[Rfam]
RNA sequence: GUGCAUCCAGCAGGAAUCGAACCUACGAAUUUGCCCGGUUGGGCGUUUUAACCAUUCAGCCAUGGAUGC
Numbered sequence: 001g002u003g004c005a006u007c008c009a010g011c012a013g014g015a016a017u018c019g020a021a022c023c024u025a026c027g028a029a030u031u032u033g034c035c036c037g038g039u040u041g042g043g044c045g046u047u048u049u050a051a052c053c054a055u056u057c058a059g060c061c062a063u064g065g066a067u068g069c
Base pairs, nucleotide, nucleotide: 003069004068005067006066007065008064010026012024013023014022037061038060039059040058041057042056043055045053
RNA: Plastid-ycf2 5UTR RNA
Organism: Lactuca saligna